[Rfam]
RNA sequence: CGACCCCGUGCGGGAGAGACCCCACACCGCCAGUGUGGGGCGCCGAAGGGGCAACCCUCCCCGGAACCUCUCAGGCAAAAGGACCGUGCGGGCGAG
Numbered sequence: 001c002g003a004c005c006c007c008g009u010g011c012g013g014g015a016g017a018g019a020c021c022c023c024a025c026a027c028c029g030c031c032a033g034u035g036u037g038g039g040g041c042g043c044c045g046a047a048g049g050g051g052c053a054a055c056c057c058u059c060c061c062c063g064g065a066a067c068c069u070c071u072c073a074g075g076c077a078a079a080a081g082g083a084c085c086g087u088g089c090g091g092g093c094g095a096g
Stems, first nucleotide, its partner, number of pairs: 006091008020040006042076003045072002049070003055064002

Background
Rfam assigns this 96-nucleotide sequence from Thermomonospora curvata to the family "Glycine riboswitch aptamer". Taxonomically the source falls in Thermomonospora curvata (Bacteria, Actinomycetota, Actinomycetes, Streptosporangiales).